[Rfam]
RNA sequence: AUGCAUCUAUUUGACAGCCCUAGGGCAGUUACUGUCUGCUGCUAAGGUUUCCAGUACAGAUGCAAGAAAAAGUGUCCUCGCGCUUUCUGUCUGCAUGAUUGUGGCAGCCAAGAUUGAGUAGAGGACUACAGGG
Numbered sequence: 001a002u003g004c005a006u007c008u009a010u011u012u013g014a015c016a017g018c019c020c021u022a023g024g025g026c027a028g029u030u031a032c033u034g035u036c037u038g039c040u041g042c043u044a045a046g047g048u049u050u051c052c053a054g055u056a057c058a059g060a061u062g063c064a065a066g067a068a069a070a071a072g073u074g075u076c077c078u079c080g081c082g083c084u085u086u087c088u089g090u091c092u093g094c095a096u097g098a099u100u101g102u103g104g105c106a107g108c109c110a111a112g113a114u115u116g117a118g119u120a121g122a123g124g125a126c127u128a129c130a131g132g133g
Stems, first nucleotide, its partner, number of pairs: 002064007012053002016050002019047002024040005075125005083116001086113003091107004

This 133-nucleotide sequence from Dipodomys ordii belongs to the Rfam family "Small nucleolar RNA SNORA31". Rfam classes the family as an H/ACA-box small nucleolar RNA. Taxonomically the source falls in Dipodomys (Eukaryota, Gnathostomata, Teleostomi, Dipnotetrapodomorpha). Its family is annotated with RNA processing and nucleolus in the Gene Ontology. Pairs were carried over by alignment from the consensus structure, which was predicted with RNAalifold.